[Rfam]
RNA sequence: AGGUGAUAUGAUGCUUUUCAUCUUUCGGGACUGAUUUAAAAUGCUGAUUCCUUAAUUACACUGAUCACCA
Numbered sequence: 001a002g003g004u005g006a007u008a009u010g011a012u013g014c015u016u017u018u019c020a021u022c023u024u025u026c027g028g029g030a031c032u033g034a035u036u037u038a039a040a041a042u043g044c045u046g047a048u049u050c051c052u053u054a055a056u057u058a059c060a061c062u063g064a065u066c067a068c069c070a
Base pairs, nucleotide, nucleotide: 002069003068004067005066006065